[Rfam]
This 189-nucleotide RNA sequence from Paraferrimonas sedimenticola belongs to the Rfam family "Lysine riboswitch aptamer". From the family's description: Riboswitches are metabolite binding domains within certain messenger RNAs that serve as precision sensors for their corresponding targets. It scores 124 bits against the family's covariance model.
RNA sequence: GAGUUAAGUAGAGGUCGCGUUGGCUAUCAGUCAUUAGCGUUAGGGUGAGACCUAUGAGCGCUAAUAAAAGGAGUCAACGCCGAAACAUCAGUCGGCUCAACCACUGGUGUUGGGGCUGUCACCGAAUAGGGACAGCACUGCCAUAGUCGGGCAUUACGCCAUUAACCACUAUGGAGCGCUACUUGAAAC
Numbered sequence: 001g002a003g004u005u006a007a008g009u010a011g012a013g014g015u016c017g018c019g020u021u022g023g024c025u026a027u028c029a030g031u032c033a034u035u036a037g038c039g040u041u042a043g044g045g046u047g048a049g050a051c052c053u054a055u056g057a058g059c060g061c062u063a064a065u066a067a068a069a070g071g072a073g074u075c076a077a078c079g080c081c082g083a084a085a086c087a088u089c090a091g092u093c094g095g096c097u098c099a100a101c102c103a104c105u106g107g108u109g110u111u112g113g114g115g116c117u118g119u120c121a122c123c124g125a126a127u128a129g130g131g132a133c134a135g136c137a138c139u140g141c142c143a144u145a146g147u148c149g150g151g152c153a154u155u156a157c158g159c160c161a162u163u164a165a166c167c168a169c170u171a172u173g174g175a176g177c178g179c180u181a182c183u184u185g186a187a188a189c
Base pairs, nucleotide, nucleotide: 006184007183008182009181010180011179017080018079019078020077021076022075023074024073025072033065034064035063036062037061038060039059040058084111085110086109087108088107089106090105091104092103094101112139113138115136116135117134118133119132120131122129141174142173143172144171145170146169147168